Actino-pnp RNA: a 56-nucleotide RNA from Allokutzneria albata. The base pairs follow the family's consensus structure, which is taken from published work. The family's RNA type in Rfam is cis-regulatory element. The organism belongs to Allokutzneria, within Bacteria.
[Rfam]
RNA sequence: GCCGGUCCUCGGUAGUGGUCUCCGGAAACAGCCGGGGACUUCGAUCGAAGACCGGC
Numbered sequence: 001g002c003c004g005g006u007c008c009u010c011g012g013u014a015g016u017g018g019u020c021u022c023c024g025g026a027a028a029c030a031g032c033c034g035g036g037g038a039c040u041u042c043g044a045u046c047g048a049a050g051a052c053c054g055g056c
Stems, first nucleotide, its partner, number of pairs: 001056007009048005017040009
Dot-bracket structure: (((((((.(((((...(((((((((......)))))))))...))))).)))))))